[Rfam]
RNA sequence: AAAAAGGGCAUUUGCUGUGAUUAGCAUGACUGCUGUUGGGUUGUCCUGACUCGGUCACGGAAUCGCUAUCAAGAGAUUUCGAAUGCGUAAUUUUUACAAUUCGGAGCUGCGUAUGAUCGAUUUUCUAUGCGCUCCA
Numbered sequence: 001a002a003a004a005a006g007g008g009c010a011u012u013u014g015c016u017g018u019g020a021u022u023a024g025c026a027u028g029a030c031u032g033c034u035g036u037u038g039g040g041u042u043g044u045c046c047u048g049a050c051u052c053g054g055u056c057a058c059g060g061a062a063u064c065g066c067u068a069u070c071a072a073g074a075g076a077u078u079u080c081g082a083a084u085g086c087g088u089a090a091u092u093u094u095u096a097c098a099a100u101u102c103g104g105a106g107c108u109g110c111g112u113a114u115g116a117u118c119g120a121u122u123u124u125c126u127a128u129g130c131g132c133u134c135c136a
Stems, first nucleotide, its partner, number of pairs: 008086005013026005027057006035050001036048001038046002058081007104134004109130005115125002
RNA: U11 spliceosomal RNA